[Rfam]
RNA sequence: GGGCUGGCCUUAGCCUAGCGGUUCCUCCCGACUUCCCUUCUAAUCAUGCGGCCUGGUGGCUGACCACUAGUGCCCUGGUUCGAGACCCGUGGGCGCUCUCUAGUCCUUGG
Dot-bracket structure: .((((((.....((((.((((...(((......................................................)))..)))))))).....)))))).....
Numbered sequence: 001g002g003g004c005u006g007g008c009c010u011u012a013g014c015c016u017a018g019c020g021g022u023u024c025c026u027c028c029c030g031a032c033u034u035c036c037c038u039u040c041u042a043a044u045c046a047u048g049c050g051g052c053c054u055g056g057u058g059g060c061u062g063a064c065c066a067c068u069a070g071u072g073c074c075c076u077g078g079u080u081c082g083a084g085a086c087c088c089g090u091g092g093g094c095g096c097u098c099u100c101u102a103g104u105c106c107u108u109g110g
Stems, first nucleotide, its partner, number of pairs: 002105006013094004018090004025084003